[Rfam]
RNA sequence: GAGAUUUUGAGAACCAUUUGAAUCAAGUAGUGGUUCAAAUGGUUCUCAAAAA
Number, nucleotide and partner (000 for none) at each position: 001g000002a000003g000004a000005u000006u000007u049008u048009g047010a046011g045012a044013a043014c042015c041016a040017u039018u038019u037020g036021a035022a034023u033024c032025a031026a000027g000028u000029a000030g000031u025032g024033g023034u022035u021036c020037a019038a018039a017040u016041g015042g014043u013044u012045c011046u010047c009048a008049a007050a000051a000052a000

Rfam assigns this 52-nucleotide sequence from Coptis chinensis to the family "Plastid-ccsA-ndhD-1 3UTR RNA". Rfam classes the family as a cis-regulatory element. Rfam describes the family as follows. Plastid-ccsA-ndhD-1 is a non-coding RNA (ncRNA) recognised in plastids.